[Rfam]
RNA: Bacillaceae-1 RNA
RNA sequence: GAAAAGGGAACAUCAGCUAAAAGCGACACGUCCGCAUGUCUUCACCGAUGUGACCUACAUCCUGUAGG
Numbered sequence: 001g002a003a004a005a006g007g008g009a010a011c012a013u014c015a016g017c018u019a020a021a022a023g024c025g026a027c028a029c030g031u032c033c034g035c036a037u038g039u040c041u042u043c044a045c046c047g048a049u050g051u052g053a054c055c056u057a058c059a060u061c062c063u064g065u066a067g068g
Stems, first nucleotide, its partner, number of pairs: 011050004016045001025040004054068005